[Rfam]
The record is a 127-nucleotide RNA sequence from Ailuropoda melanoleuca, which matches "Small nucleolar RNA SNORA9" in Rfam. NCBI's taxonomy places the organism under Eukaryota, Dipnotetrapodomorpha, Mammalia, Theria, Ailuropoda. Clan: SNORA9 clan. From the family's description: ACA9 is a member of the H/ACA class of snoRNA that guide the sites of modification of uridines to pseudouridines. The family's RNA type in Rfam is H/ACA-box small nucleolar RNA.
RNA sequence: UUGCAAGCCUUCCAGCAUGCUUGGGUCUAGGGUGACUCAGUGCAUUCCUUGCUAGAAUGUCCUGAAAUGGUUUGAGGCUUUGCCCUGUCCCUGCCUCGGAGCAUGGUCAUAGACAUUUCAGGCAGUU
Number, nucleotide and partner (000 for none) at each position: 001u000002u000003g052004c051005a050006a049007g048008c000009c000010u000011u000012c000013c000014a000015g000016c000017a000018u044019g043020c042021u000022u000023g038024g037025g036026u035027c034028u000029a000030g000031g000032g000033u000034g027035a026036c025037u024038c023039a000040g000041u000042g020043c019044a018045u000046u000047c000048c007049u006050u005051g004052c003053u000054a000055g000056a000057a000058u000059g000060u000061c000062c000063u120064g119065a118066a117067a116068u000069g000070g000071u000072u000073u000074g000075a000076g000077g000078c106079u105080u000081u103082g102083c101084c000085c099086u098087g097088u000089c000090c000091c000092u000093g000094c000095c000096u000097c087098g086099g085100a000101g083102c082103a081104u000105g079106g078107u000108c000109a000110u000111a000112g000113a000114c000115a000116u067117u066118u065119c064120a063121g000122g000123c000124a000125g000126u000127u000